[Rfam]
RNA sequence: AACGAGAUACUAACGUUCGCCUGUAUAAUUAUGGUGAUAAGGUCCAUAAGUCUCUACCAGACUGCCGUAAAUAGUCUGCCUACAGGUUUUAACCCAGGGUUU
Numbered sequence: 001a002a003c004g005a006g007a008u009a010c011u012a013a014c015g016u017u018c019g020c021c022u023g024u025a026u027a028a029u030u031a032u033g034g035u036g037a038u039a040a041g042g043u044c045c046a047u048a049a050g051u052c053u054c055u056a057c058c059a060g061a062c063u064g065c066c067g068u069a070a071a072u073a074g075u076c077u078g079c080c081u082a083c084a085g086g087u088u089u090u091a092a093c094c095c096a097g098g099g100u101u102u
Stems, first nucleotide, its partner, number of pairs: 019087007029049006058078007
The record is a 102-nucleotide sequence from Peptoclostridium litorale, which matches "Purine riboswitch aptamer" in Rfam. The match comes from Rfam's covariance-model search (74 bits). Its family is annotated with purine nucleobase biosynthetic process in the Gene Ontology.